[Rfam]
RNA sequence: AGCCGCAUUAGUUGGAUUGGGAAACUCAUCAAACUAAUCUGAAAACCGAGACAUAGCUUCAUCUUCCAAUGGCGGGCCACGCCUUCGGGUAGCAUUUAUGCCGGUGGAUUACAAAGGAGGAGAGCACUCAAAACCUGUCAUUCGGAGUUUCAUCGCAUCACUGGUGCGGCUUCAUUA
Numbered sequence: 001a002g003c004c005g006c007a008u009u010a011g012u013u014g015g016a017u018u019g020g021g022a023a024a025c026u027c028a029u030c031a032a033a034c035u036a037a038u039c040u041g042a043a044a045a046c047c048g049a050g051a052c053a054u055a056g057c058u059u060c061a062u063c064u065u066c067c068a069a070u071g072g073c074g075g076g077c078c079a080c081g082c083c084u085u086c087g088g089g090u091a092g093c094a095u096u097u098a099u100g101c102c103g104g105u106g107g108a109u110u111a112c113a114a115a116g117g118a119g120g121a122g123a124g125c126a127c128u129c130a131a132a133a134c135c136u137g138u139c140a141u142u143c144g145g146a147g148u149u150u151c152a153u154c155g156c157a158u159c160a161c162u163g164g165u166g167c168g169g170c171u172u173c174a175u176u177a
Stems, first nucleotide, its partner, number of pairs: 056125003060122001062121006070113002077107004081090003092101003